RNA sequence: ACGAAGUAAUUAAAUAUUUCUCGUAUAAUAGCAGGGAUAUGGCCUGCAAGUUUCUACCGGAUUACCUUAAAUAAUUCGACUACGAGUGAUUGGGAUAGCUAU
Numbered sequence: 001a002c003g004a005a006g007u008a009a010u011u012a013a014a015u016a017u018u019u020c021u022c023g024u025a026u027a028a029u030a031g032c033a034g035g036g037a038u039a040u041g042g043c044c045u046g047c048a049a050g051u052u053u054c055u056a057c058c059g060g061a062u063u064a065c066c067u068u069a070a071a072u073a074a075u076u077c078g079a080c081u082a083c084g085a086g087u088g089a090u091u092g093g094g095a096u097a098g099c100u101a102u
Stems, first nucleotide, its partner, number of pairs: 018088001020086006029049001031047005058078007

Shown here is a 102-nucleotide sequence from Anaerobacillus alkalidiazotrophicus, a member of the family "Purine riboswitch aptamer". Gene Ontology term of the family: purine nucleobase biosynthetic process. The base pairs follow the family's consensus structure, which is taken from published work.